Background:
This 435-nucleotide RNA sequence from Iodobacter ciconiae belongs to the Rfam family "Bacterial RNase P class A".
[Rfam]
RNA sequence: GGAGCAGGCCAGACAGUCGCUGCCAUACUUUUAGGGUAUGGGGGAGGAAAGUCCGGGCUCCAUAGGGCAGGAUGCCGGUUAACGGCCGGGCGUUGCAAGGCGACGGAAAGUGCAACAGAGAGCUGAACCGCCGAUGGCCCAAGUUGAAAGCCUUUAUUGAUACAAGGCCGGAUUGGGAUCAGGUAAGGGUGAAAAGGUGUUCCCGUCAGGGAUGCAGGCCGCAAGGUCUGCCGGUAAGAGCGCACCGCGGACGUGGUAACACGGACGGCAGGGUAAACCCCAUCCGGAGCAAGACCAAGCAGUAGACGUUGAGGUGGCCCGCCGAGUCUACGGGUAGGUUGCACGAGCCCAGCAGCAAUGCUGGGCCUAGAGGAAUGACUGUCACCUUGGGGUAACUCAAGGCUACAAAACCCGGCUUAUCGGUCGGCUCCGCAA
Numbered sequence: 001g002g003a004g005c006a007g008g009c010c011a012g013a014c015a016g017u018c019g020c021u022g023c024c025a026u027a028c029u030u031u032u033a034g035g036g037u038a039u040g041g042g043g044g045a046g047g048a049a050a051g052u053c054c055g056g057g058c059u060c061c062a063u064a065g066g067g068c069a070g071g072a073u074g075c076c077g078g079u080u081a082a083c084g085g086c087c088g089g090g091c092g093u094u095g096c097a098a099g100g101c102g103a104c105g106g107a108a109a110g111u112g113c114a115a116c117a118g119a120g121a122g123c124u125g126a127a128c129c130g131c132c133g134a135u136g137g138c139c140c141a142a143g144u145u146g147a148a149a150g151c152c153u154u155u156a157u158u159g160a161u162a163c164a165a166g167g168c169c170g171g172a173u174u175g176g177g178a179u180c181a182g183g184u185a186a187g188g189g190u191g192a193a194a195a196g197g198u199g200u201u202c203c204c205g206u207c208a209g210g211g212a213u214g215c216a217g218g219c220c221g222c223a224a225g226g227u228c229u230g231c232c233g234g235u236a237a238g239a240g241c242g243c244a245c246c247g248c249g250g251a252c253g254u255g256g257u258a259a260c261a262c263g264g265a266c267g268g269c270a271g272g273g274u275a276a277a278c279c280c281c282a283u284c285c286g287g288a289g290c291a292a293g294a295c296c297a298a299g300c301a302g303u304a305g306a307c308g309u310u311g312a313g314g315u316g317g318c319c320c321g322c323c324g325a326g327u328c329u330a331c332g333g334g335u336a337g338g339u340u341g342c343a344c345g346a347g348c349c350c351a352g353c354a355g356c357a358a359u360g361c362u363g364g365g366c367c368u369a370g371a372g373g374a375a376u377g378a379c380u381g382u383c384a385c386c387u388u389g390g391g392g393u394a395a396c397u398c399a400a401g402g403c404u405a406c407a408a409a410a411c412c413c414g415g416c417u418u419a420u421c422g423g424u425c426g427g428c429u430c431c432g433c434a435a
Stems, first nucleotide, its partner, number of pairs: 001431005007425004011420001012383007020044002023041006049418003053415005058289004065320004070285005075089005090104001091102004105280002110278002112274002128188002130184003135181003139177002196246004247269001248267002252263004293340004302331006313323003347366008